[Rfam]
RNA sequence: CUGAUGUCACAACGGCUUCCUGACGUGGCAUUUUAAUUGGUAUUGGAGCU
Numbered sequence: 001c002u003g004a005u006g007u008c009a010c011a012a013c014g015g016c017u018u019c020c021u022g023a024c025g026u027g028g029c030a031u032u033u034u035a036a037u038u039g040g041u042a043u044u045g046g047a048g049c050u
Base pairs, nucleotide, nucleotide: 004031005030006029007028008027009026010025013022014021015049016048017047019046020045
RNA: SAM/SAH riboswitch aptamer